Description:
This 58-nucleotide sequence from Scleromatobacter humisilvae belongs to the Rfam family "L17-Actino-Proteobacteria ribosomal protein leader". For this family Rfam cites "Discovery of 20 novel ribosomal leader candidates in bacteria and archaea" (Eckert and Weinberg, BMC Microbiol, 2020). A search with the family's covariance model found it, with a score of 38 bits. Taxonomically the source falls in Scleromatobacter (Bacteria, Pseudomonadota, Burkholderiales, Sphaerotilaceae).

[Rfam]
RNA sequence: GCUCGUCGCAAGACGGGCGCCGUGUGCAAACCUCCGGUACCUGACACGGCCGGAGUUC
Numbered sequence: 001g002c003u004c005g006u007c008g009c010a011a012g013a014c015g016g017g018c019g020c021c022g023u024g025u026g027c028a029a030a031c032c033u034c035c036g037g038u039a040c041c042u043g044a045c046a047c048g049g050c051c052g053g054a055g056u057u058c
Base pairs, nucleotide, nucleotide: 001018002017003016004015005014006013007012028057029056032055033054034053035052036051037050038049